[Rfam]
RNA sequence: UGCUUCCUUCGGGGCGGGGUGUGAUUCCCCACCGGCGGUGAUGCUGCCAAGCAGCUCAGCCCGCGAAGCCCGCGCAAACUGCUUCACGCGCAGGCCCGAUUCGGUGCGAUUCCGAAGCCGACGGUAUUCCGGCCAGCAUGCUGCGCCGGUCAGUCCGGAUGAGAGAAGGAGGAC
Dot-bracket structure: ..((((((((......(((.......)))...((((((....................[[))))...((........................))....(((((.......)))))]])).(((..............................))).......))))))))..
Numbered sequence: 001u002g003c004u005u006c007c008u009u010c011g012g013g014g015c016g017g018g019g020u021g022u023g024a025u026u027c028c029c030c031a032c033c034g035g036c037g038g039u040g041a042u043g044c045u046g047c048c049a050a051g052c053a054g055c056u057c058a059g060c061c062c063g064c065g066a067a068g069c070c071c072g073c074g075c076a077a078a079c080u081g082c083u084u085c086a087c088g089c090g091c092a093g094g095c096c097c098g099a100u101u102c103g104g105u106g107c108g109a110u111u112c113c114g115a116a117g118c119c120g121a122c123g124g125u126a127u128u129c130c131g132g133c134c135a136g137c138a139u140g141c142u143g144c145g146c147c148g149g150u151c152a153g154u155c156c157g158g159a160u161g162a163g164a165g166a167a168g169g170a171g172g173a174c
Stems, first nucleotide, its partner, number of pairs: 003172008017029003033120002035064004059118002068095002100116005122157003

Background:
Rfam assigns this 174-nucleotide sequence from Deinococcus ficus to the family "FMN riboswitch aptamer (RFN element)". A search with the family's covariance model found it, with a score of 95 bits. Rfam's curators write: The RFN element is a highly conserved domain that is found frequently in the 5'-untranslated regions of prokaryotic mRNAs that encode for flavin mononucleotide (FMN) biosynthesis and transport proteins. The family's consensus secondary structure is taken from published work.